Source information: The record is a 71-nucleotide RNA from Taxus chinensis, which matches "Small nucleolar RNA snoR60" in Rfam.
Nucleotides: 071
Base pairs, nucleotide, nucleotide: 002071003070004069005068
Number, partner (000 for none) and nucleotide at each position: 001000a002071a003070g004069u005068g006000a007000a008000g009000g010000a011000u012000g013000a014000u015000a016000u017000a018000c019000u020000u021000g022000g023000a024000u025000u026000c027000c028000c029000c030000u031000u032000c033000a034000a035000g036000a037000c038000a039000c040000u041000a042000u043000a044000g045000a046000u047000g048000a049000u050000g051000u052000c053000a054000a055000c056000c057000a058000a059000g060000u061000u062000u063000u064000c065000u066000a067000a068005c069004a070003c071002u

The source organism's lineage runs through Eukaryota, Viridiplantae, Streptophyta, Tracheophyta and Taxus. Rfam 15.1 lists 1,133 matches to the family in 227 species. The base pairs follow the family's consensus structure, which was predicted with PFOLD. It is annotated as a C/D-box small nucleolar RNA. On this family, see Barneche et al., J Biol Chem 2000: "Fibrillarin genes encode both a conserved nucleolar protein and a novel small nucleolar RNA involved in ribosomal RNA methylation in Arabidopsis thaliana".